[Rfam]
Rfam assigns this 132-nucleotide RNA sequence from Mesorhizobium sp. J18 to the family "Alphaproteobacterial sRNA ar35".
Rfam classes the family as a small RNA.

RNA sequence: GUCCGGCAAGAGCGCGGCCGCCAAUCUUCAGGCCGCCUGACGUUUUUUGCCUCCGGUCUUUGACCACGGAUGUACUGGCACUGGCCGUUGAGGCGAACAGGAGAAGGUCGGGAGUUCCCGGCCUUUUUCGUU
Numbered sequence: 001g002u003c004c005g006g007c008a009a010g011a012g013c014g015c016g017g018c019c020g021c022c023a024a025u026c027u028u029c030a031g032g033c034c035g036c037c038u039g040a041c042g043u044u045u046u047u048u049g050c051c052u053c054c055g056g057u058c059u060u061u062g063a064c065c066a067c068g069g070a071u072g073u074a075c076u077g078g079c080a081c082u083g084g085c086c087g088u089u090g091a092g093g094c095g096a097a098c099a100g101g102a103g104a105a106g107g108u109c110g111g112g113a114g115u116u117c118c119c120g121g122c123c124u125u126u127u128u129c130g131u132u
Stems, first nucleotide, its partner, number of pairs: 001041003005037001012034001014033002046097007055086004061080002064078003100129012
Rfam 15.1 lists 266 matches to the family in 153 species.